Shown here is a 133-nucleotide RNA from Crocuta crocuta, a member of the family "Small nucleolar RNA SNORA61". Taxonomically the source falls in Crocuta (Eukaryota, Bilateria, Gnathostomata, Mammalia).
RNA sequence: ACCCUCUGGUUCCCUUUCCCAUCAGAUCUGAACAUUGGUUUGGGUGGUUAUAAGGGACGGAAAAGGAACACUGAAAGUGGACUCACAGUGCUUAUGGUCUGGUAUAGAGCUCAUGGGCUAGUUUCAAACAAGG
Numbered sequence: 001a002c003c004c005u006c007u008g009g010u011u012c013c014c015u016u017u018c019c020c021a022u023c024a025g026a027u028c029u030g031a032a033c034a035u036u037g038g039u040u041u042g043g044g045u046g047g048u049u050a051u052a053a054g055g056g057a058c059g060g061a062a063a064a065g066g067a068a069c070a071c072u073g074a075a076a077g078u079g080g081a082c083u084c085a086c087a088g089u090g091c092u093u094a095u096g097g098u099c100u101g102g103u104a105u106a107g108a109g110c111u112c113a114u115g116g117g118c119u120a121g122u123u124u125c126a127a128a129c130a131a132g133g
Stems, first nucleotide, its partner, number of pairs: 003060002005057003019047005025040004078120003082116002095109001

ACA61 is a member of the H/ACA class of snoRNA that guide the sites of modification of uridines to pseudouridines.
By type it is an H/ACA-box small nucleolar RNA.